[Rfam]
RNA sequence: CGGGGUCAAAUUGACUCUAGUAGGGAGUCCGUUUAAUACACAUAGUGACUCCCUAAUGGAGUCAGAUUGACCUCUUU
Number, nucleotide and partner (000 for none) at each position: 001c000002g000003g000004g000005g000006u000007c000008a000009a000010a000011u065012u064013g063014a062015c061016u060017c059018u058019a000020g000021u055022a054023g053024g052025g051026a050027g049028u048029c047030c000031g000032u000033u000034u000035a000036a000037u000038a000039c000040a000041c000042a000043u000044a000045g000046u000047g029048a028049c027050u026051c025052c024053c023054u022055a021056a000057u000058g018059g017060a016061g015062u014063c013064a012065g011066a000067u000068u000069g000070a000071c000072c000073u000074c000075u000076u000077u000

The record is a 77-nucleotide sequence from Cryptotermes secundus, which matches "mir-929 microRNA precursor family" in Rfam. A search with the family's covariance model found it, with a score of 82 bits. NCBI's taxonomy places the organism under Eukaryota, Ecdysozoa, Mandibulata, Pancrustacea, Cryptotermes. The family's consensus secondary structure was predicted with RNAalifold.